The family of this 135-nucleotide RNA from Otolemur garnettii is "Small nucleolar RNA SNORA15". Rfam 15.1 lists 974 matches to the family in 624 species. Pairs were carried over by alignment from the consensus structure, which was predicted with RNAfold. Gene Ontology terms of the family: nucleolus and RNA processing.
RNA sequence: GCAUGGCUGAAUACUGUGUUCUUUCAUCAGUAGUUUACACAGCCAGACACCAUGCAAAAGCAGUCCUCCCUUUUAAAUGACUGAUGAUAUGCUAAGUUAUUUCAUAGCAUAUCACUGUUAAAGGUGAACACAAAC
Numbered sequence: 001g002c003a004u005g006g007c008u009g010a011a012u013a014c015u016g017u018g019u020u021c022u023u024u025c026a027u028c029a030g031u032a033g034u035u036u037a038c039a040c041a042g043c044c045a046g047a048c049a050c051c052a053u054g055c056a057a058a059a060g061c062a063g064u065c066c067u068c069c070c071u072u073u074u075a076a077a078u079g080a081c082u083g084a085u086g087a088u089a090u091g092c093u094a095a096g097u098u099a100u101u102u103c104a105u106a107g108c109a110u111a112u113c114a115c116u117g118u119u120a121a122a123g124g125u126g127a128a129c130a131c132a133a134a135c
Stems, first nucleotide, its partner, number of pairs: 001055006014042006067127002069124005075118001082117002085114010
It is annotated as an H/ACA-box small nucleolar RNA. For this family Rfam cites "RNomics: an experimental approach that identifies 201 candidates for novel, small, non-messenger RNAs in mouse" (Huttenhofer et al., EMBO J, 2001). Rfam's curators put it in the seed alignment.